The record is a 356-nucleotide RNA sequence from Paracoccus aurantiacus, which matches "Alphaproteobacteria transfer-messenger RNA" in Rfam. The match comes from Rfam's covariance-model search (290 bits). The organism belongs to Paracoccus, within Bacteria.

RNA sequence: ACCCUUGUUCCCGGCACCCUGCGCCCCUAUAUUCCCCCUGUUCGGGUUCGCCCGGACUAUGGGCAUAAACGCGCUCGUAAUAAGCGGAUCGGACCCGGGGGCGGUACCCGGCGGCUCCACCAAAUUCGCCUUCGUUGGGGGGAUCUGGGGCCGAAACAGGAUCGACGAACGUGUAAAGGGGAUGGCUUUGCCUCGGUGAGCUACCACCGUUAUCGGUGCAAAACGUACAGUUGCCAACGACAACCGUGCUCCGGUCGCUCUGGCUGCGUAAGCAGCUCGGGUAACCGAAACCUAACUCCUUGCGCUUAGCCGCGUAAGGCGGGGCCCGCAGGAGCCUUGCAACAGAAUCCUGCACU
Numbered sequence: 001a002c003c004c005u006u007g008u009u010c011c012c013g014g015c016a017c018c019c020u021g022c023g024c025c026c027c028u029a030u031a032u033u034c035c036c037c038c039u040g041u042u043c044g045g046g047u048u049c050g051c052c053c054g055g056a057c058u059a060u061g062g063g064c065a066u067a068a069a070c071g072c073g074c075u076c077g078u079a080a081u082a083a084g085c086g087g088a089u090c091g092g093a094c095c096c097g098g099g100g101g102c103g104g105u106a107c108c109c110g111g112c113g114g115c116u117c118c119a120c121c122a123a124a125u126u127c128g129c130c131u132u133c134g135u136u137g138g139g140g141g142g143a144u145c146u147g148g149g150g151c152c153g154a155a156a157c158a159g160g161a162u163c164g165a166c167g168a169a170c171g172u173g174u175a176a177a178g179g180g181g182a183u184g185g186c187u188u189u190g191c192c193u194c195g196g197u198g199a200g201c202u203a204c205c206a207c208c209g210u211u212a213u214c215g216g217u218g219c220a221a222a223a224c225g226u227a228c229a230g231u232u233g234c235c236a237a238c239g240a241c242a243a244c245c246g247u248g249c250u251c252c253g254g255u256c257g258c259u260c261u262g263g264c265u266g267c268g269u270a271a272g273c274a275g276c277u278c279g280g281g282u283a284a285c286c287g288a289a290a291c292c293u294a295a296c297u298c299c300u301u302g303c304g305c306u307u308a309g310c311c312g313c314g315u316a317a318g319g320c321g322g323g324g325c326c327c328g329c330a331g332g333a334g335c336c337u338u339g340c341a342a343c344a345g346a347a348u349c350c351u352g353c354a355c356u
Stems, first nucleotide, its partner, number of pairs: 040057007061193005071186002074181003085171002089168003095111005112153007194209004200219002203217003322337004328353006